[Rfam]
RNA: MIR2655 microRNA precursor family
Organism: Trifolium subterraneum
RNA sequence: CCCUUAUCUUUUAAAAGUUUCAAGUUGGUCCCGUAUCUUUAUUUUAGGUUUCAAGUUAGUCCAUUCCGUCAAUUUUUUAACUAUUUCCGUUAAAUUUGGACACGUGACAAACUAAUUUGGACAUGUGGCACACUUGGACGGAUGACACGUGUACAAAUUUAAUGGUAACAGUAAAAAAAUUGACGGAAGGAACCAACUUGAAACCUAAAAUAAAGAUAAGGGACCAACUUGAAACUUUUAAAAUAUAAGGGA
Dot-bracket structure: .((((((...............(((.(((.((.((((((((((.(((.............................................................................................................................................................))).)))))))))).)).))).)))...............))))))..
Numbered sequence: 001c002c003c004u005u006a007u008c009u010u011u012u013a014a015a016a017g018u019u020u021c022a023a024g025u026u027g028g029u030c031c032c033g034u035a036u037c038u039u040u041a042u043u044u045u046a047g048g049u050u051u052c053a054a055g056u057u058a059g060u061c062c063a064u065u066c067c068g069u070c071a072a073u074u075u076u077u078u079a080a081c082u083a084u085u086u087c088c089g090u091u092a093a094a095u096u097u098g099g100a101c102a103c104g105u106g107a108c109a110a111a112c113u114a115a116u117u118u119g120g121a122c123a124u125g126u127g128g129c130a131c132a133c134u135u136g137g138a139c140g141g142a143u144g145a146c147a148c149g150u151g152u153a154c155a156a157a158u159u160u161a162a163u164g165g166u167a168a169c170a171g172u173a174a175a176a177a178a179a180u181u182g183a184c185g186g187a188a189g190g191a192a193c194c195a196a197c198u199u200g201a202a203a204c205c206u207a208a209a210a211u212a213a214a215g216a217u218a219a220g221g222g223a224c225c226a227a228c229u230u231g232a233a234a235c236u237u238u239u240a241a242a243a244u245a246u247a248a249g250g251g252a
Stems, first nucleotide, its partner, number of pairs: 002250006023229003027225003031221002034218010045207003